[Rfam]
RNA sequence: CAAGCCAGAAGAGGCGCGUUGCUCAGGUAACGUAUCCGAGGAGACGGUUUCCGCUGACGAUACGCAAGGGGGUGCAACGCCGAGGCGGGGUAAUGACCGAAUUGCCGCGUCGGCUACAGGGGCUGAAUCCUCUGGGCUGUCACCUCGAUGCUCCUUGUAUUCCGGGGGUAUCGCCAAGGUGGGGCGCUUCUGGGUGU
Numbered sequence: 001c002a003a004g005c006c007a008g009a010a011g012a013g014g015c016g017c018g019u020u021g022c023u024c025a026g027g028u029a030a031c032g033u034a035u036c037c038g039a040g041g042a043g044a045c046g047g048u049u050u051c052c053g054c055u056g057a058c059g060a061u062a063c064g065c066a067a068g069g070g071g072g073u074g075c076a077a078c079g080c081c082g083a084g085g086c087g088g089g090g091u092a093a094u095g096a097c098c099g100a101a102u103u104g105c106c107g108c109g110u111c112g113g114c115u116a117c118a119g120g121g122g123c124u125g126a127a128u129c130c131u132c133u134g135g136g137c138u139g140u141c142a143c144c145u146c147g148a149u150g151c152u153c154c155u156u157g158u159a160u161u162c163c164g165g166g167g168g169u170a171u172c173g174c175c176a177a178g179g180u181g182g183g184g185c186g187c188u189u190c191u192g193g194g195u196g197u
Base pairs, nucleotide, nucleotide: 006192007191008190009189010188011187016080017079018078019077020076021075022074024072031064032063033062034061035060036059084111085110086109087108089106090105091104092103093102094101112138113137114136115135117134118133119132120131121130122129140182141181142180143179144178145177
Dot-bracket structure: .....((((((....(((((((.(......((((((......................)))))).......).)))))))...((((.((((((......)))))).))))((((.((((((......)))))))))).((((((...............................))))))....)))))).....

About this RNA: The record is a 197-nucleotide sequence from Enterobacillus tribolii, which matches "Lysine riboswitch aptamer" in Rfam. Pairs were carried over by alignment from the consensus structure, which is taken from published work. The source organism's lineage runs through Bacteria, Pseudomonadati, Pseudomonadota, Gammaproteobacteria and Enterobacillus.